A member of the RNA family "Clostridiales-1 RNA" from Oribacterium sp. oral taxon 078, 176 nucleotides long.
The family's RNA type in Rfam is small RNA.
The family's consensus secondary structure is taken from published work.
RNA sequence: UUAAGCCCUGCCGCGCGCCGAGGGGAAGAAGCACAUUUAUGUGCGGAUUCCCCGUGGCAUGCGGCAGGCAAACGGGGAUGAGGAAAGAAGCGGAGCGAGGAAAGGAGCGAAGCGAUUUCCGAAUCCCCGGUGCGGAUUGCGGGAGCGACUGCAGUGCGGAGCAAUCCGCAGCUUCA
Number, nucleotide and partner (000 for none) at each position: 001u171002u170003a000004a000005g000006c000007c068008c067009u066010g065011c000012c000013g000014c061015g060016c000017g058018c057019c056020g055021a000022g053023g052024g051025g050026a049027a048028g000029a000030a000031g044032c043033a042034c041035a040036u000037u000038u000039a000040u035041g034042u033043g032044c031045g000046g000047a000048u027049u026050c025051c024052c023053c022054g000055u020056g019057g018058c017059a000060u015061g014062c000063g000064g000065c010066a009067g008068g007069c000070a000071a000072a000073c129074g128075g127076g126077g125078a124079u123080g000081a000082g120083g119084a118085a117086a000087g000088a000089a000090g113091c112092g000093g000094a000095g108096c107097g000098a000099g000100g000101a000102a000103a000104g000105g000106a000107g096108c095109g000110a000111a000112g091113c090114g000115a000116u000117u085118u084119c083120c082121g000122a000123a079124u078125c077126c076127c075128c074129g073130g000131u000132g000133c000134g167135g166136a165137u164138u163139g162140c161141g000142g000143g000144a000145g157146c156147g000148a155149c154150u000151g000152c000153a000154g149155u148156g146157c145158g000159g000160a000161g140162c139163a138164a137165u136166c135167c134168g000169c000170a002171g001172c000173u000174u000175c000176a000